[Rfam]
RNA sequence: CCAUCAUCAUCAUCCCGACUAGGCUUUCAGAAUUUUAUUCUGGAAGGCCUAUACCUUGGCGGCUUCCAGCAGGACAGAAUACAUAAACCCUCGGAAGCAUAGCUCCGGGGGUUUUUCGUU
Numbered sequence: 001c002c003a004u005c006a007u008c009a010u011c012a013u014c015c016c017g018a019c020u021a022g023g024c025u026u027u028c029a030g031a032a033u034u035u036u037a038u039u040c041u042g043g044a045a046g047g048c049c050u051a052u053a054c055c056u057u058g059g060c061g062g063c064u065u066c067c068a069g070c071a072g073g074a075c076a077g078a079a080u081a082c083a084u085a086a087a088c089c090c091u092c093g094g095a096a097g098c099a100u101a102g103c104u105c106c107g108g109g110g111g112u113u114u115u116u117c118g119u120u
Base pairs, nucleotide, nucleotide: 009038010037012033013032015030017028018027040069041068042067043066044065045064046063083116085114086113087112088111089110090109091108092107093106094105095104097103